[Rfam]
Rfam assigns this 137-nucleotide RNA sequence from Candidula unifasciata to the family "Small nucleolar RNA SNORD10". Its family is annotated with RNA processing and nucleolus in the Gene Ontology. Rfam 15.1 lists 433 matches to the family in 306 species.
RNA sequence: GUAAAAUGAUGAAACCUCAUGCGUGUCAUCUGACGUCCUGCCUGGCCAUUGGGUCAACACUGUGGUGGUGUUCUGCGACCACAGUGAAGAUCCCUUGGCUUGUGAGGACGGAGUGAUUAAUUUUGGUGGCUGAUUAC
Numbered sequence: 001g002u003a004a005a006a007u008g009a010u011g012a013a014a015c016c017u018c019a020u021g022c023g024u025g026u027c028a029u030c031u032g033a034c035g036u037c038c039u040g041c042c043u044g045g046c047c048a049u050u051g052g053g054u055c056a057a058c059a060c061u062g063u064g065g066u067g068g069u070g071u072u073c074u075g076c077g078a079c080c081a082c083a084g085u086g087a088a089g090a091u092c093c094c095u096u097g098g099c100u101u102g103u104g105a106g107g108a109c110g111g112a113g114u115g116a117u118u119a120a121u122u123u124u125g126g127u128g129g130c131u132g133a134u135u136a137c
Stems, first nucleotide, its partner, number of pairs: 001137004044100005051093002
It scores 50 bits against the family's covariance model. A reference for the family is Huttenhofer et al. (2001), "RNomics: an experimental approach that identifies 201 candidates for novel, small, non-messenger RNAs in mouse", EMBO J. Lineage of the source: Eukaryota > Gastropoda > Heterobranchia > Eupulmonata > Candidula.